The family of this 90-nucleotide RNA from Olea europaea is "Plastid-rps12 3UTR RNA". Pairs were carried over by alignment from the consensus structure, which was predicted with LocARNA. Lineage of the source: Eukaryota > Streptophyta > Embryophyta > Oleeae > Olea europaea. Rfam describes the family as follows. Plastid rpl20 is a non-coding RNA (ncRNA) recognised in plastids. It was found in the three prime untranslated region (3UTR) of rps12 gene, its 3UTR location sugest a role in transcript maduration.
RNA sequence: GGAAUGAAGGAAAUUUGCCCCUGAAUUUAAGAUGAGAAGCAAUUCUCCAUUGGUAGCAAAUGGUUAUCUAUUAAGCGGAGGAAAUCUUAU
Numbered sequence: 001g002g003a004a005u006g007a008a009g010g011a012a013a014u015u016u017g018c019c020c021c022u023g024a025a026u027u028u029a030a031g032a033u034g035a036g037a038a039g040c041a042a043u044u045c046u047c048c049a050u051u052g053g054u055a056g057c058a059a060a061u062g063g064u065u066a067u068c069u070a071u072u073a074a075g076c077g078g079a080g081g082a083a084a085u086c087u088u089a090u
Base pairs, nucleotide, nucleotide: 006016007015045080046079047078048077049071050070052068053067054066055065056064057063
Rfam classes the family as a cis-regulatory element. The match comes from Rfam's covariance-model search (80 bits). The literature on the family includes a 2023 paper in Plant Commun by Richter et al., "Retrograde signaling in plants: A critical review focusing on the GUN pathway and beyond".